About this RNA: Rfam assigns this 193-nucleotide RNA from Staphylococcus haemolyticus to the family "S. aureus tsr25 small RNA".
RNA sequence: UAAUAGUAUUUGAAAAUGAUUAUCAAUACCGAAUAAGACAAUUCCCCCCACAUAUAUUUCGUUCUUAAAGGAUUGGUCAUUUUCAAGUUAUUCCCCUUUUAUAUGCCCGUAAAAGACUAACGUUAAAGUUUCAAACUUACUUUAAACGUUUUAAUAAAAAGCAGUGAAUCUAAUGCCGAGGUUCACUGCUUUU
Numbered sequence: 001u002a003a004u005a006g007u008a009u010u011u012g013a014a015a016a017u018g019a020u021u022a023u024c025a026a027u028a029c030c031g032a033a034u035a036a037g038a039c040a041a042u043u044c045c046c047c048c049c050a051c052a053u054a055u056a057u058u059u060c061g062u063u064c065u066u067a068a069a070g071g072a073u074u075g076g077u078c079a080u081u082u083u084c085a086a087g088u089u090a091u092u093c094c095c096c097u098u099u100u101a102u103a104u105g106c107c108c109g110u111a112a113a114a115g116a117c118u119a120a121c122g123u124u125a126a127a128g129u130u131u132c133a134a135a136c137u138u139a140c141u142u143u144a145a146a147c148g149u150u151u152u153a154a155u156a157a158a159a160a161g162c163a164g165u166g167a168a169u170c171u172a173a174u175g176c177c178g179a180g181g182u183u184c185a186c187u188g189c190u191u192u193u
Stems, first nucleotide, its partner, number of pairs: 005092004010086011024075004029071002035065001037063003096115007120149005157193014
The family's consensus secondary structure was predicted with RNAfold. For this family Rfam cites "Genome-wide Annotation, Identification, and Global Transcriptomic Analysis of Regulatory or Small RNA Gene Expression in Staphylococcus aureus" (Carroll et al., MBio, 2016). The source organism's lineage runs through Bacteria, Bacillati, Caryophanales, Staphylococcus and Staphylococcus haemolyticus.